[Rfam]
RNA: ZMP/ZTP riboswitch aptamer (pfl RNA motif)
RNA sequence: CUGGACGCACACGACUGGCGCGGGUGGACCACCACCGGGGAGUGACGCCGGGAGCAUCGACCGCCUGGGUGCUCCCC
Number, nucleotide and partner (000 for none) at each position: 001c000002u000003g049004g048005a000006c047007g046008c000009a000010c044011a043012c042013g000014a000015c039016u038017g065018g064019c063020g062021c000022g000023g000024g035025u034026g033027g032028a000029c000030c000031a000032c027033c026034a025035c024036c000037g000038g016039g015040g000041a000042g012043u011044g010045a000046c007047g006048c004049c003050g000051g000052g000053a000054g072055c071056a070057u069058c068059g000060a000061c000062c020063g019064c018065c017066u000067g000068g058069g057070u056071g055072c054073u000074c000075c000076c000077c000